Archaeal small subunit ribosomal RNA: a 496-nucleotide part of an RNA from Candidatus Undinarchaeum marinum. Rfam links the family to the GO terms structural constituent of ribosome and ribosome. A reference for the family is Cannone et al. (2002), "The comparative RNA web (CRW) site: an online database of comparative sequence and structure information for ribosomal, intron, and other RNAs", BMC Bioinformatics. The family is grouped with related families in Rfam's "SSU clan".
RNA sequence: AUUCCGGUUGAUCCUGCCGGACCAGACUGCUGUUGGAGUUCGACUAAGCCAUGCAAGUCUUCCGAAAGGAGGCGAAAGGCUGAGUAACACGUAGGUAACCUACCUUAUGGAGGGGCAUACCCUCGGGAAACUGAGGCUAAUUCCCCAUAGGAUUUGGUGACUGGAAUGUCCCAAAACCCAAAGCUUCGGCGCCAUAAGAUGGGCCUGCGGCCUAUCAGGUUGUUGGCGGGGUAAUGGCCCACCAAGCCUUUGACGGGUAGGGGCAGUGAGAGCUGAAGCCCCCAGACGGGCACUGAGAUACUGGCCCGAGCCUUACGGGGUGCAGCAGGCGCGAAACCUUUACAAUGCACGCAAGUGUGAUAAGGGAACUCCAAGUGCCAUUGCUUUUUGUGAUGGCUUUUUUUGAGUGUAAAUAGCUCUAAGAAUAAGAGCUGGGUAAGACAGGUGCCAGCAGCCGCGGUAAUACCUGCAGCUCAAGUGGUCUGGAUUUUUAUUG
Numbered sequence: 001a002u003u004c005c006g007g008u009u010g011a012u013c014c015u016g017c018c019g020g021a022c023c024a025g026a027c028u029g030c031u032g033u034u035g036g037a038g039u040u041c042g043a044c045u046a047a048g049c050c051a052u053g054c055a056a057g058u059c060u061u062c063c064g065a066a067a068g069g070a071g072g073c074g075a076a077a078g079g080c081u082g083a084g085u086a087a088c089a090c091g092u093a094g095g096u097a098a099c100c101u102a103c104c105u106u107a108u109g110g111a112g113g114g115g116c117a118u119a120c121c122c123u124c125g126g127g128a129a130a131c132u133g134a135g136g137c138u139a140a141u142u143c144c145c146c147a148u149a150g151g152a153u154u155u156g157g158u159g160a161c162u163g164g165a166a167u168g169u170c171c172c173a174a175a176a177c178c179c180a181a182a183g184c185u186u187c188g189g190c191g192c193c194a195u196a197a198g199a200u201g202g203g204c205c206u207g208c209g210g211c212c213u214a215u216c217a218g219g220u221u222g223u224u225g226g227c228g229g230g231g232u233a234a235u236g237g238c239c240c241a242c243c244a245a246g247c248c249u250u251u252g253a254c255g256g257g258u259a260g261g262g263g264c265a266g267u268g269a270g271a272g273c274u275g276a277a278g279c280c281c282c283c284a285g286a287c288g289g290g291c292a293c294u295g296a297g298a299u300a301c302u303g304g305c306c307c308g309a310g311c312c313u314u315a316c317g318g319g320g321u322g323c324a325g326c327a328g329g330c331g332c333g334a335a336a337c338c339u340u341u342a343c344a345a346u347g348c349a350c351g352c353a354a355g356u357g358u359g360a361u362a363a364g365g366g367a368a369c370u371c372c373a374a375g376u377g378c379c380a381u382u383g384c385u386u387u388u389u390g391u392g393a394u395g396g397c398u399u400u401u402u403u404u405g406a407g408u409g410u411a412a413a414u415a416g417c418u419c420u421a422a423g424a425a426u427a428a429g430a431g432c433u434g435g436g437u438a439a440g441a442c443a444g445g446u447g448c449c450a451g452c453a454g455c456c457g458c459g460g461u462a463a464u465a466c467c468u469g470c471a472g473c474u475c476a477a478g479u480g481g482u483c484u485g486g487a488u489u490u491u492u493a494u495u496g
Stems, first nucleotide, its partner, number of pairs: 004020005022486010033374009042332001048330003052327003057073003061070003080285003090209007099202002104198007112146004121136006151177001153175005160169002183190002211257003218248003223245004228240003260282004264275004287308005310321004338364001340363003346359005377397008402422002405419004429475006442469004451458002